[Rfam]
RNA sequence: UUCCCCGUCAUGGGGGAGUAGCCGCCCGCCGCUGUGCGGGAGCUGGCGUCAACACACUUGGCCCCCAUUGGCCAUGGCACCCGCGACAGGUCUCACCUGUC
Numbered sequence: 001u002u003c004c005c006c007g008u009c010a011u012g013g014g015g016g017a018g019u020a021g022c023c024g025c026c027c028g029c030c031g032c033u034g035u036g037c038g039g040g041a042g043c044u045g046g047c048g049u050c051a052a053c054a055c056a057c058u059u060g061g062c063c064c065c066c067a068u069u070g071g072c073c074a075u076g077g078c079a080c081c082c083g084c085g086a087c088a089g090g091u092c093u094c095a096c097c098u099g100u101c
Stems, first nucleotide, its partner, number of pairs: 025040003042084002045081002048078004059074005085101007

This 101-nucleotide RNA sequence from Vitreoscilla filiformis belongs to the Rfam family "Manganese Mn2+ riboswitch aptamer (yybP-ykoY)". Rfam links the family to the GO term manganese ion binding. The match comes from Rfam's covariance-model search (55 bits). Rfam 15.1 lists 1,126 matches to the family in 1,062 species. A reference for the family is Argaman et al. (2001), "Novel small RNA-encoding genes in the intergenic regions of Escherichia coli", Curr Biol. The pairing is the family consensus, mapped onto this sequence.